[Rfam]
Rfam assigns this 574-nucleotide part of an RNA from Candidatus Parvarchaeum acidiphilum to the family "Archaeal large subunit ribosomal RNA". The base pairs follow the family's consensus structure, which is taken from published work. Taxonomically the source falls in Candidatus Parvarchaeum acidiphilum (Archaea, Nanobdellati, Candidatus Parvarchaeota, Candidatus Parvarchaeum).
RNA sequence: CCUCCACUGGGUCAAAAAGACCCCAGGAACUUUACUGCAGUCUCUUGUUGUGGUACUAAGUUGAUAGGCAUAGAGUAGGUAGCAGGCGUUAUGCUCAUUGUUCCGGCAAUGAGAUAGCCGAAAGUGUAACACUACCCUUAUUGACUUAUACCACUUACCUUCGGGAACAGCAGGAGAUGGGCAGUUUUGCUGGGGUGGCAAUCCCACGAAAAGAUAACAUGGGAGCCCAAAGGUCAUCUUAAGUGGCAUAGAAAUCCACUGUUAAGUGCAAUGGCAAAAGAUGGCUUGACUGCGCACUACAAAGCAAAGUGCACAGAGGCGAAAGCCGGGCAUAGCGAACACGAAUGCGUGUUUUUUUGACUCCUUCGUAUGACAGAAAAGCUACCCUGGGCGUAAGAGAGUUGUUGCGGAUGAUAGUUCAUAUUGACUUCGCAGCUUGCUCCACAGUCUUUGGCUCUCCCCAUCCUGGUUGUGCACAAGCAGCCAAGGGUACAGGUGUUCACUGGUUAAAGGGGACCGUGAGCUGAGUUUAGGCCGCCGCGAGGCAGGCCGGUAGUUAACUAGUGGAGGUGGU
Number, nucleotide and partner (000 for none) at each position: 001c570002c569003u568004c567005c566006a565007c564008u563009g000010g562011g561012u560013c000014a557015a000016a000017a000018a000019g000020a000021c000022c391023c390024c389025a388026g387027g386028a383029a000030c381031u380032u379033u000034a185035c184036u183037g182038c000039a000040g000041u177042c176043u175044c174045u173046u172047g171048u000049u000050g154051u153052g152053g151054u150055a149056c000057u148058a147059a146060g145061u144062u143063g142064a141065u140066a139067g138068g137069c000070a000071u000072a000073g000074a000075g000076u000077a000078g136079g135080u134081a133082g132083c000084a000085g119086g118087c117088g000089u000090u000091a000092u000093g000094c000095u000096c000097a110098u109099u108100g107101u106102u000103c000104c000105g000106g101107c100108a099109a098110u097111g000112a000113g000114a000115u000116a000117g087118c086119c085120g000121a000122a000123a000124g000125u000126g000127u000128a000129a000130c000131a000132c082133u081134a080135c079136c078137c068138u067139u066140a065141u064142u063143g062144a061145c060146u059147u058148a057149u055150a054151c053152c052153a051154c050155u000156u000157a000158c165159c164160u000161u000162c000163g000164g159165g158166a000167a000168c000169a000170g000171c047172a046173g045174g044175a043176g042177a041178u000179g000180g000181g000182c037183a036184g035185u034186u000187u000188u201189g199190c198191u197192g000193g000194g000195g000196u000197g191198g190199c189200a000201a188202u224203c223204c222205c221206a220207c000208g000209a000210a000211a000212a000213g000214a000215u000216a000217a000218c000219a000220u206221g205222g204223g203224a202225g000226c000227c330228c329229a000230a000231a000232g000233g285234u284235c283236a282237u281238c280239u265240u264241a000242a260243g259244u258245g257246g256247c000248a000249u000250a000251g000252a000253a000254a000255u000256c246257c245258a244259c243260u242261g000262u000263u000264a240265a239266g275267u274268g000269c000270a000271a000272u000273g000274g267275c266276a000277a000278a000279a000280g238281a237282u236283g235284g234285c233286u000287u000288g000289a000290c316291u315292g314293c000294g312295c311296a310297c309298u308299a000300c000301a000302a000303a000304g000305c000306a000307a000308a298309g297310u296311g295312c294313a000314c292315a291316g290317a000318g327319g000320c325321g000322a000323a000324a000325g320326c000327c318328g000329g228330g227331c000332a000333u000334a000335g000336c000337g000338a000339a000340c000341a369342c368343g367344a366345a365346u000347g364348c000349g363350u000351g361352u360353u000354u000355u000356u000357u000358u000359g000360a352361c351362u000363c349364c347365u345366u344367c343368g342369u341370a000371u000372g000373a000374c000375a000376g000377a000378a000379a032380a031381g030382c000383u028384a000385c000386c027387c026388u025389g024390g023391g022392c000393g000394u000395a000396a000397g000398a000399g000400a441401g440402u439403u000404g438405u435406u434407g433408c432409g431410g430411a429412u000413g000414a000415u000416a424417g000418u000419u000420c000421a000422u000423a000424u416425u000426g000427a000428c000429u411430u410431c409432g408433c407434a406435g405436c000437u000438u404439g402440c401441u400442c000443c000444a000445c000446a000447g000448u000449c000450u000451u000452u527453g525454g524455c523456u522457c519458u516459c515460c514461c513462c512463a000464u000465c490466c489467u000468g000469g484470u483471u482472g481473u480474g000475c000476a000477c000478a000479a000480g473481c472482a471483g470484c469485c000486a000487a000488g000489g466490g465491u000492a000493c505494a504495g503496g000497u000498g000499u000500u000501c000502a000503c495504u494505g493506g000507u000508u000509a000510a000511a000512g462513g461514g460515g459516a458517c000518c000519g457520u000521g000522a456523g455524c454525u453526g000527a452528g000529u000530u000531u000532a000533g551534g550535c549536c548537g546538c545539c544540g000541c000542g000543a000544g539545g538546c537547a000548g536549g535550c534551c533552g000553g000554u000555a000556g000557u014558u000559a000560a012561c011562u010563a008564g007565u006566g005567g004568a003569g002570g001571u000572g000573g000574u000